Annotation:
This 223-nucleotide RNA sequence from Clostridium neonatale belongs to the Rfam family "Group II catalytic intron D1-D4-6". Rfam links the family to the GO term Group II intron splicing. Rfam's curators write: Group II introns are found in rRNA, tRNA and mRNA of organelles in fungi, plants and protists, and also in mRNA in bacteria.
RNA sequence: GAAAUCCUGUUUGAAUAAGGUCUAGCCAACCAGCAAUAGCGAGUCUUGAGUUGUCAUCAGUAAUGGUGGGAGCUAAGCGUAGACAGCGAGAAAGUAGGGUUGAAAUGCUAUUGAGCCUCGAAAUUUUAUUAAUCUAGAUGGCCGACGUAUUAAUUACUGCGGAAGGCAACAUCACAUAGGUCAAGAUGGCAAGAACUAUGUGGCACUACGGGGUCAAAGGGCC
Numbered sequence: 001g002a003a004a005u006c007c008u009g010u011u012u013g014a015a016u017a018a019g020g021u022c023u024a025g026c027c028a029a030c031c032a033g034c035a036a037u038a039g040c041g042a043g044u045c046u047u048g049a050g051u052u053g054u055c056a057u058c059a060g061u062a063a064u065g066g067u068g069g070g071a072g073c074u075a076a077g078c079g080u081a082g083a084c085a086g087c088g089a090g091a092a093a094g095u096a097g098g099g100u101u102g103a104a105a106u107g108c109u110a111u112u113g114a115g116c117c118u119c120g121a122a123a124u125u126u127u128a129u130u131a132a133u134c135u136a137g138a139u140g141g142c143c144g145a146c147g148u149a150u151u152a153a154u155u156a157c158u159g160c161g162g163a164a165g166g167c168a169a170c171a172u173c174a175c176a177u178a179g180g181u182c183a184a185g186a187u188g189g190c191a192a193g194a195a196c197u198a199u200g201u202g203g204c205a206c207u208a209c210g211g212g213g214u215c216a217a218a219g220g221g222c223c
Base pairs, nucleotide, nucleotide: 012035013034019031020030021029023192025190026189037089039087040086043084044083045082046081047079048078049074050073051072052071054069055068056067057066058065059064112217113215115214116213117212118211119210120209135208136207137206139205140204141167142166143165146161147160148159149158172203173202174201175200176199177198178197179196181194182193